[Rfam]
RNA: mir-92 microRNA precursor family
Organism: Anolis carolinensis
RNA sequence: CUUUCUACACAGGUUGGGAUUGGUUGCAAUGCUGUCUAUGUGUAUGUGGUAUUGCACUUGUCCCGGCCUGUUGAGGUUGG
Numbered sequence: 001c002u003u004u005c006u007a008c009a010c011a012g013g014u015u016g017g018g019a020u021u022g023g024u025u026g027c028a029a030u031g032c033u034g035u036c037u038a039u040g041u042g043u044a045u046g047u048g049g050u051a052u053u054g055c056a057c058u059u060g061u062c063c064c065g066g067c068c069u070g071u072u073g074a075g076g077u078u079g080g
Stems, first nucleotide, its partner, number of pairs: 004076003009071006016064005022058003026055009